[Rfam]
RNA: Small nucleolar RNA snoR77
RNA sequence: AGGCAGCCCCCUUGCGAUGACGAUAGCUUGGGAGGCGUUUAACUGCUCGUACAUCGAUUUGCUUUUGCUCUUCAGAUUUGCUGAGAUUUCUGUCUUUGAAGCUGGUCUAGUAGGCAUCAGUACAUU
Dot-bracket structure: .(((..(((((..((.(......).))..))).)).)))......................((...(((....(((((.(((..(((....))).....))).)))))....)))...))......